[Rfam]
RNA sequence: UUCCCUGGUGUCCGGGGUUGCGGGCACAUUCCUCCCUGAUGGACUGGCCGGACCUUUGGGUCCGGUCUUUUUU
Numbered sequence: 001u002u003c004c005c006u007g008g009u010g011u012c013c014g015g016g017g018u019u020g021c022g023g024g025c026a027c028a029u030u031c032c033u034c035c036c037u038g039a040u041g042g043a044c045u046g047g048c049c050g051g052a053c054c055u056u057u058g059g060g061u062c063c064g065g066u067c068u069u070u071u072u073u
Base pairs, nucleotide, nucleotide: 008029009028010027011026012024013023046067047066048065049064050063051062052061053060
The family of this 73-nucleotide RNA from Aliiroseovarius sediminilitoris is "Singlet oxygen resistance RNA X". Rfam links the family to the GO term response to photooxidative stress. It is annotated as a small RNA. SorX (RSs2461)like SorY is a singlet oxygen induced sRNA that counteracts oxidative stress by targeting mRNA for a transporter in Rhodobacter. It also has an impact on resistance against organic hydroperoxides. Lineage of the source: Bacteria > Pseudomonadati > Pseudomonadota > Paracoccaceae > Aliiroseovarius. The pairing is the family consensus, mapped onto this sequence. A reference for the family is Peng et al. (2016), "Regulation of a polyamine transporter by the conserved 3' UTR-derived sRNA SorX confers resistance to singlet oxygen and organic hydroperoxides in Rhodobacter sphaeroides", RNA Biol.